RNA sequence: GCAUUGAGUAGAAGCUGUCAAGGCGUCGCCUGGGUCAUUGCUCAACGC
Numbered sequence: 001g002c003a004u005u006g007a008g009u010a011g012a013a014g015c016u017g018u019c020a021a022g023g024c025g026u027c028g029c030c031u032g033g034g035u036c037a038u039u040g041c042u043c044a045a046c047g048c
Stems, first nucleotide, its partner, number of pairs: 005044006015033001019034001021031004

The record is a 48-nucleotide sequence from Endozoicomonas elysicola, which matches "Xanthine riboswitch aptamer (NMT1 RNA)" in Rfam. For this family Rfam cites "A bacterial riboswitch class senses xanthine and uric acid to regulate genes associated with purine oxidation" (Yu and Breaker, RNA, 2020). Its family is annotated with purine nucleobase binding in the Gene Ontology. NCBI's taxonomy places the organism under Bacteria, Pseudomonadati, Pseudomonadota, Endozoicomonadaceae, Endozoicomonas elysicola. The family's consensus secondary structure is taken from published work.